[Rfam]
RNA: FMN riboswitch aptamer (RFN element)
RNA sequence: CAAGCGCUCCGGGGUCGGUGUAAUUCCGAACCGGUGGUGACAGUCCACGAACUGAUGACGGGUGCGAACCCGACUGAGGUUGACCCGGUGGAAAUCCGGGACCGACGGUGAGAGUCCGGAUGGGAGGCGCGCUGA
Numbered sequence: 001c002a003a004g005c006g007c008u009c010c011g012g013g014g015u016c017g018g019u020g021u022a023a024u025u026c027c028g029a030a031c032c033g034g035u036g037g038u039g040a041c042a043g044u045c046c047a048c049g050a051a052c053u054g055a056u057g058a059c060g061g062g063u064g065c066g067a068a069c070c071c072g073a074c075u076g077a078g079g080u081u082g083a084c085c086c087g088g089u090g091g092a093a094a095u096c097c098g099g100g101a102c103c104g105a106c107g108g109u110g111a112g113a114g115u116c117c118g119g120a121u122g123g124g125a126g127g128c129g130c131g132c133u134g135a
Base pairs, nucleotide, nucleotide: 003133004132005131006130007129009127010126016028017027018026030115031114032104033103034048035047036046037045043102044101051080052079053078084100085099086098087097088096106118107117108116